Rfam assigns this 351-nucleotide part of an RNA from Sediminitomix flava to the family "Bacterial small subunit ribosomal RNA". The family's consensus secondary structure is taken from published work. Taxonomically the source falls in Sediminitomix (Bacteria, Pseudomonadati, Cytophagales, Flammeovirgaceae).
RNA sequence: GGUUUAAAGGGUGCGUAGGCGGCCUUGUAAGUCAGUGGUGAAAUUUUGCGGCUUAACUGUGAAAGUGCCAUUGAAACUGCUAGGCUUGAGUACUGUAGAGGCAGGCGGAAUUCCUGAUGUAGCGGUGAAAUGCAUAGAUAUCAGGAGGAACACCGAGAGCGAAGGCAGCUUGCUGGACAGUAACUGACGCUGAGGCACGAAAGUGUGGGGAGCGAACAGGAUUAGAUACCCUGGUAGUCCACACCGUAAACGAUGAUAACUAGGUGUCUGCGAUACAAUGUAGGUGCCCAAGCGAAAGUGAUAAGUUAUCCACCUGGGGAGUACGCUGGCAACAGUGAAACUCAAAGGAAU
Numbered sequence: 001g002g003u004u005u006a007a008a009g010g011g012u013g014c015g016u017a018g019g020c021g022g023c024c025u026u027g028u029a030a031g032u033c034a035g036u037g038g039u040g041a042a043a044u045u046u047u048g049c050g051g052c053u054u055a056a057c058u059g060u061g062a063a064a065g066u067g068c069c070a071u072u073g074a075a076a077c078u079g080c081u082a083g084g085c086u087u088g089a090g091u092a093c094u095g096u097a098g099a100g101g102c103a104g105g106c107g108g109a110a111u112u113c114c115u116g117a118u119g120u121a122g123c124g125g126u127g128a129a130a131u132g133c134a135u136a137g138a139u140a141u142c143a144g145g146a147g148g149a150a151c152a153c154c155g156a157g158a159g160c161g162a163a164g165g166c167a168g169c170u171u172g173c174u175g176g177a178c179a180g181u182a183a184c185u186g187a188c189g190c191u192g193a194g195g196c197a198c199g200a201a202a203g204u205g206u207g208g209g210g211a212g213c214g215a216a217c218a219g220g221a222u223u224a225g226a227u228a229c230c231c232u233g234g235u236a237g238u239c240c241a242c243a244c245c246g247u248a249a250a251c252g253a254u255g256a257u258a259a260c261u262a263g264g265u266g267u268c269u270g271c272g273a274u275a276c277a278a279u280g281u282a283g284g285u286g287c288c289c290a291a292g293c294g295a296a297a298g299u300g301a302u303a304a305g306u307u308a309u310c311c312a313c314c315u316g317g318g319g320a321g322u323a324c325g326c327u328g329g330c331a332a333c334a335g336u337g338a339a340a341c342u343c344a345a346a347g348g349a350a351u
Base pairs, nucleotide, nucleotide: 001314002313003312009311011198012197013196014195016192018191019190020189022085023084024083025082027080028079030078031077032074033073034072035071036070037069038068039067040066045063046062047061048060049059050058051057089185090184091183092181093180094179095178096177100174101173102172103171104170105169106168107151111147112146113145114144115143116142117141118140122133123132124131159166160165203244204243205242206241207240208239212238213237217233218232219231220230255310256309257308258307259306260305263288264287265286266285267284268283269282270281271280272279292299293298316343317342318341325336326335327334328333